RNA sequence: GGCAGCACGGGAGAGCGACCCGUCAGCUGGCAGUCAAGGCACCCUUGGCAUGAGCGAUGUCAGGGGUUGCUUUCUGCGCUUAUCAAAAAUCUGAAGACAUUUGGUGCAUUUGCGUAAGAGGUUUGUAACGCGCCGAACGUGUUUAAGCGGAUACUGCAUCGCUUGGGGAGGACUAGUUCCUCCUCGCAGUUCCGUGGCCCCA
Numbered sequence: 001g002g003c004a005g006c007a008c009g010g011g012a013g014a015g016c017g018a019c020c021c022g023u024c025a026g027c028u029g030g031c032a033g034u035c036a037a038g039g040c041a042c043c044c045u046u047g048g049c050a051u052g053a054g055c056g057a058u059g060u061c062a063g064g065g066g067u068u069g070c071u072u073u074c075u076g077c078g079c080u081u082a083u084c085a086a087a088a089a090u091c092u093g094a095a096g097a098c099a100u101u102u103g104g105u106g107c108a109u110u111u112g113c114g115u116a117a118g119a120g121g122u123u124u125g126u127a128a129c130g131c132g133c134c135g136a137a138c139g140u141g142u143u144u145a146a147g148c149g150g151a152u153a154c155u156g157c158a159u160c161g162c163u164u165g166g167g168g169a170g171g172a173c174u175a176g177u178u179c180c181u182c183c184u185c186g187c188a189g190u191u192c193c194g195u196g197g198c199c200c201c202a
Stems, first nucleotide, its partner, number of pairs: 003029004007023005030077004036071001041067009147195005153190005165185008
Cyano-2 RNA: a 202-nucleotide RNA sequence from Synechococcus sp. CC9605. The sequence is in the family's curated seed alignment. The base pairs follow the family's consensus structure, which is taken from published work.